[Rfam]
RNA sequence: UGCCAAACCCAUUAAAGGUGUUGUUCCCCACCUCGGAGCUACUUUACCGUAUUCUGAAUUC
Numbered sequence: 001u002g003c004c005a006a007a008c009c010c011a012u013u014a015a016a017g018g019u020g021u022u023g024u025u026c027c028c029c030a031c032c033u034c035g036g037a038g039c040u041a042c043u044u045u046a047c048c049g050u051a052u053u054c055u056g057a058a059u060u061c
Stems, first nucleotide, its partner, number of pairs: 017045002020042002023039005
Dot-bracket structure: ................((.((.(((((.......))))).)).))................
RNA: Plastid-psbN 5UTR RNA